[Rfam]
RNA: tRNA
Organism: Bifidobacterium reuteri
RNA sequence: GGGUCCGUAGCUCAGUGGAUAGAGCGUCUGUCUCCGGAACAGAAGGUCGAGGGUUCGAUUCCCUUUGGGCCCA
Numbered sequence: 001g002g003g004u005c006c007g008u009a010g011c012u013c014a015g016u017g018g019a020u021a022g023a024g025c026g027u028c029u030g031u032c033u034c035c036g037g038a039a040c041a042g043a044a045g046g047u048c049g050a051g052g053g054u055u056c057g058a059u060u061c062c063c064u065u066u067g068g069g070c071c072c073a
Base pairs, nucleotide, nucleotide: 001072002071003070004069005068006067007066010025011024012023013022027043028042029041030040031039049065050064051063052062053061